[Rfam]
RNA: Small nucleolar RNA snoR138
Organism: Malus domestica
RNA sequence: UUUGCCCUCCGAAUAACCAGAAGGCGAGAUGCAAAUCCGACGCCGUUUGGUUCAGACAGGGGCACACAGCGAUCCGAAGCCGUUUUGUGGGCGAAGAUCUGAUUAUUUCUUCGUCCUUUAUUUCAUUUUUUCAAAAACUUUGCUUCGAACAUUU
Dot-bracket structure: ..(((((.(.....(((((((..(((..............)))..)))))))......))))))..........((((((.(.(..(.(.(..((((..........))))..)).)..).).....((......))....)))))).......
Numbered sequence: 001u002u003u004g005c006c007c008u009c010c011g012a013a014u015a016a017c018c019a020g021a022a023g024g025c026g027a028g029a030u031g032c033a034a035a036u037c038c039g040a041c042g043c044c045g046u047u048u049g050g051u052u053c054a055g056a057c058a059g060g061g062g063c064a065c066a067c068a069g070c071g072a073u074c075c076g077a078a079g080c081c082g083u084u085u086u087g088u089g090g091g092c093g094a095a096g097a098u099c100u101g102a103u104u105a106u107u108u109c110u111u112c113g114u115c116c117u118u119u120a121u122u123u124c125a126u127u128u129u130u131u132c133a134a135a136a137a138c139u140u141u142g143c144u145u146c147g148a149a150c151a152u153u154u
Stems, first nucleotide, its partner, number of pairs: 003064005009059001015052007024043003075147006082122001084120001087117001089115001091114001094111004128137002